[Rfam]
RNA sequence: AGGACAGUAUUCGGCUGUAUUCACGGCUGUAUUCACGGCGUGAAAUAGGGGAUUACACUAUUUUUAAAACGGAAAGUGAAUCAAUUAACAUAAUAGACUCCU
Numbered sequence: 001a002g003g004a005c006a007g008u009a010u011u012c013g014g015c016u017g018u019a020u021u022c023a024c025g026g027c028u029g030u031a032u033u034c035a036c037g038g039c040g041u042g043a044a045a046u047a048g049g050g051g052a053u054u055a056c057a058c059u060a061u062u063u064u065u066a067a068a069a070c071g072g073a074a075a076g077u078g079a080a081u082c083a084a085u086u087a088a089c090a091u092a093a094u095a096g097a098c099u100c101c102u
Stems, first nucleotide, its partner, number of pairs: 002101003012096001014094001016092003020088002025086002028083002031081006039071003042064007

Rfam assigns this 102-nucleotide RNA from Nicotiana attenuata to the family "MIR6152 microRNA precursor family". The family's consensus secondary structure was predicted with RNAalifold. The match comes from Rfam's covariance-model search (82 bits). Lineage of the source: Eukaryota > Viridiplantae > Magnoliopsida > lamiids > Nicotiana.